A member of the RNA family "Phenylalanine leader peptide" from Providencia rustigianii, 120 nucleotides long. Rfam 15.1 lists 379 matches to the family in 290 species. By type it is a cis-regulatory leader. It is one of the family's seed sequences.
RNA sequence: AAUGAAUUUAAAUUUUGUUUUCUUUUUCUUCUUUAGCCACUCUUAUUAAGGGGCUUUUGUCGUUCGAGAAAAAAAAGAAGACAAAAUUUUAAAGCCCCCUCUUUUGGGGGCUUUUUUUAU
Numbered sequence: 001a002a003u004g005a006a007u008u009u010a011a012a013u014u015u016u017g018u019u020u021u022c023u024u025u026u027u028c029u030u031c032u033u034u035a036g037c038c039a040c041u042c043u044u045a046u047u048a049a050g051g052g053g054c055u056u057u058u059g060u061c062g063u064u065c066g067a068g069a070a071a072a073a074a075a076a077g078a079a080g081a082c083a084a085a086a087u088u089u090u091a092a093a094g095c096c097c098c099c100u101c102u103u104u105u106g107g108g109g110g111c112u113u114u115u116u117u118u119a120u
Stems, first nucleotide, its partner, number of pairs: 012087004017082011029070002032067002035064001038051001040050002052061003091114009